[Rfam]
RNA sequence: CCGUGAACUUUGUAUUGCGCACAUCACUUAGAUGAACUCUAGAGAGUCGCGUAGAAU
Numbered sequence: 001c002c003g004u005g006a007a008c009u010u011u012g013u014a015u016u017g018c019g020c021a022c023a024u025c026a027c028u029u030a031g032a033u034g035a036a037c038u039c040u041a042g043a044g045a046g047u048c049g050c051g052u053a054g055a056a057u
Stems, first nucleotide, its partner, number of pairs: 019037001022034004
RNA: Plastid-ndhJ 3UTR RNA
Organism: Gossypium hirsutum